This 92-nucleotide RNA from Paenibacillus sp. TCA20 belongs to the Rfam family "c-di-GMP-I riboswitch aptamer".
RNA sequence: ACGAAUUGGAGGCAAAUUUGUUGAAAAGCAAAGACGCAAAGCCAUGGGUCUAAGGUAAGUCUAAUGACUUAUGAUGACAGCCGGUUGCCGAU
Numbered sequence: 001a002c003g004a005a006u007u008g009g010a011g012g013c014a015a016a017u018u019u020g021u022u023g024a025a026a027a028g029c030a031a032a033g034a035c036g037c038a039a040a041g042c043c044a045u046g047g048g049u050c051u052a053a054g055g056u057a058a059g060u061c062u063a064a065u066g067a068c069u070u071a072u073g074a075u076g077a078c079a080g081c082c083g084g085u086u087g088c089c090g091a092u
Base pairs, nucleotide, nucleotide: 012037013036017032018031019030020029021028022027040086041085042084043083046082047081048078049077050076055072056071057070058069059068060067061066

Lineage of the source: Bacteria > Bacillota > Bacilli > Paenibacillaceae > Paenibacillus.